This 135-nucleotide RNA from Castor canadensis belongs to the Rfam family "Small nucleolar RNA SNORA51".
It scores 114 bits against the family's covariance model.
Gene Ontology terms of the family: RNA processing and nucleolus.
Rfam's curators write: ACA51 is a member of the H/ACA class of snoRNA that guide the sites of modification of uridines to pseudouridines.
Rfam classes the family as an H/ACA-box small nucleolar RNA.
[Rfam]
RNA sequence: GGCCUCCUAGUGCUUACCACAAGCUGUGUUCUUACACCCAUUAUAUAGAAAGAGGAGGCAAGGUAAAUCUACUCCAUAUACACCUCAGCCCAGGCGCUGUGCCUGGUAUGUAUUGUGAGGCAUGGGGUGGGAGGA
Numbered sequence: 001g002g003c004c005u006c007c008u009a010g011u012g013c014u015u016a017c018c019a020c021a022a023g024c025u026g027u028g029u030u031c032u033u034a035c036a037c038c039c040a041u042u043a044u045a046u047a048g049a050a051a052g053a054g055g056a057g058g059c060a061a062g063g064u065a066a067a068u069c070u071a072c073u074c075c076a077u078a079u080a081c082a083c084c085u086c087a088g089c090c091c092a093g094g095c096g097c098u099g100u101g102c103c104u105g106g107u108a109u110g111u112a113u114u115g116u117g118a119g120g121c122a123u124g125g126g127g128u129g130g131g132a133g134g135a
Stems, first nucleotide, its partner, number of pairs: 002059007021042002026037004072127006086110002090106006